[Rfam]
RNA sequence: GGAGUAGGCGUAGGUAGUUACAGAUUAGUCAUAAAAGGCUAGUUUGAGGAAAGUCCGGGCUUCCGAAAGACCAGACUUGCUGGAUAACGUCCAGUGCGUGCGAGCGUGAGGAUAGUGCCACAGAAAAAUACCGCCUAAUUUAGUGAACGGUGAACAGUGAGCAGUGAGCAGGUAAUACUUGAUAACUGAUAACUGGUAACUGCUAACUGAUGAGGUAAGGGUGCAAAGGUGCGGUAAGAGCGCACCAGCAACAUCGAGAGGUGUUGGCUCGGUAAACCCCGGUUGGAAGCAAGGUAAAUGGAGCUAUGGUUGGUCUUUUUCCAGUUCCUUUGAUGAGAGCCGCUUGAGGCAUUUGGUAACAAAUGUCCCAGAUAGAUGACUACCCUUGUAAUCUGGAAGUAUGAAGAAAUUUAAUACUUUGAGAUUUUGAGAACAGAACCCGGCUUAUGUCCGACUCUCUCC
Numbered sequence: 001g002g003a004g005u006a007g008g009c010g011u012a013g014g015u016a017g018u019u020a021c022a023g024a025u026u027a028g029u030c031a032u033a034a035a036a037g038g039c040u041a042g043u044u045u046g047a048g049g050a051a052a053g054u055c056c057g058g059g060c061u062u063c064c065g066a067a068a069g070a071c072c073a074g075a076c077u078u079g080c081u082g083g084a085u086a087a088c089g090u091c092c093a094g095u096g097c098g099u100g101c102g103a104g105c106g107u108g109a110g111g112a113u114a115g116u117g118c119c120a121c122a123g124a125a126a127a128a129u130a131c132c133g134c135c136u137a138a139u140u141u142a143g144u145g146a147a148c149g150g151u152g153a154a155c156a157g158u159g160a161g162c163a164g165u166g167a168g169c170a171g172g173u174a175a176u177a178c179u180u181g182a183u184a185a186c187u188g189a190u191a192a193c194u195g196g197u198a199a200c201u202g203c204u205a206a207c208u209g210a211u212g213a214g215g216u217a218a219g220g221g222u223g224c225a226a227a228g229g230u231g232c233g234g235u236a237a238g239a240g241c242g243c244a245c246c247a248g249c250a251a252c253a254u255c256g257a258g259a260g261g262u263g264u265u266g267g268c269u270c271g272g273u274a275a276a277c278c279c280c281g282g283u284u285g286g287a288a289g290c291a292a293g294g295u296a297a298a299u300g301g302a303g304c305u306a307u308g309g310u311u312g313g314u315c316u317u318u319u320u321c322c323a324g325u326u327c328c329u330u331u332g333a334u335g336a337g338a339g340c341c342g343c344u345u346g347a348g349g350c351a352u353u354u355g356g357u358a359a360c361a362a363a364u365g366u367c368c369c370a371g372a373u374a375g376a377u378g379a380c381u382a383c384c385c386u387u388g389u390a391a392u393c394u395g396g397a398a399g400u401a402u403g404a405a406g407a408a409a410u411u412u413a414a415u416a417c418u419u420u421g422a423g424a425u426u427u428u429g430a431g432a433a434c435a436g437a438a439c440c441c442g443g444c445u446u447a448u449g450u451c452c453g454a455c456u457c458u459c460u461c462c
Stems, first nucleotide, its partner, number of pairs: 001458005007452002012448001013384007021046009051446003055443005060289004069322001074284003078281002080094005095109001096107004110279002115277002117273003131220002133216004138211003228246006248268001249266007293341003302334001304332001306330001313327001316324002348367008
A member of the RNA family "Bacterial RNase P class A" from Calothrix sp. PCC 6303, 462 nucleotides long. The match comes from Rfam's covariance-model search (236 bits). The family's consensus secondary structure is taken from published work. By type it is a ribozyme. Gene Ontology terms of the family: dimeric ribonuclease P complex, tRNA processing and ribonuclease P activity.